The record is a 112-nucleotide sequence from Actinoplanes sp. TBRC 11911, which matches "TPP riboswitch aptamer (THI element)" in Rfam.
[Rfam]
RNA sequence: GGAAGGACCCACGGGAGUCCGGUGCACCGGGCUGAGAGGGGGGCUGACGCGGCCCUCGACCGUCGAACCUGAUCCGGAUCAUGCCGGCGCAGGGAGGAGCGUUCGUUGUUGC
Numbered sequence: 001g002g003a004a005g006g007a008c009c010c011a012c013g014g015g016a017g018u019c020c021g022g023u024g025c026a027c028c029g030g031g032c033u034g035a036g037a038g039g040g041g042g043g044c045u046g047a048c049g050c051g052g053c054c055c056u057c058g059a060c061c062g063u064c065g066a067a068c069c070u071g072a073u074c075c076g077g078a079u080c081a082u083g084c085c086g087g088c089g090c091a092g093g094g095a096g097g098a099g100c101g102u103u104c105g106u107u108g109u110u111g112c
Stems, first nucleotide, its partner, number of pairs: 006100001009097002011063004017032005039056004068093004074087004
The family's consensus secondary structure is taken from published work. For this family Rfam cites "Comparative genomics of thiamin biosynthesis in procaryotes. New genes and regulatory mechanisms" (Rodionov et al., J Biol Chem, 2002). Vitamin B(1) in its active form thiamin pyrophosphate (TPP) is an essential coenzyme that is synthesised by coupling of pyrimidine and thiazole moieties in bacteria.